[Rfam]
RNA sequence: AAUUUCAUUUGAAGCGGUAUCCUUUUUUGUGGAUUUUUCUUCCACAAAAAGAUAUAGCGGAUAGCAGGAAAUAGC
Numbered sequence: 001a002a003u004u005u006c007a008u009u010u011g012a013a014g015c016g017g018u019a020u021c022c023u024u025u026u027u028u029g030u031g032g033a034u035u036u037u038u039c040u041u042c043c044a045c046a047a048a049a050a051g052a053u054a055u056a057g058c059g060g061a062u063a064g065c066a067g068g069a070a071a072u073a074g075c
Stems, first nucleotide, its partner, number of pairs: 005067001009063001014058002019053003025048002028046006
Flavo-1 RNA: a 75-nucleotide RNA sequence from Flavobacterium sp. KMS.
By type it is a small RNA.
It scores 43 bits against the family's covariance model.
Pairs were carried over by alignment from the consensus structure, which is taken from published work.
The organism belongs to Flavobacterium, within Bacteria.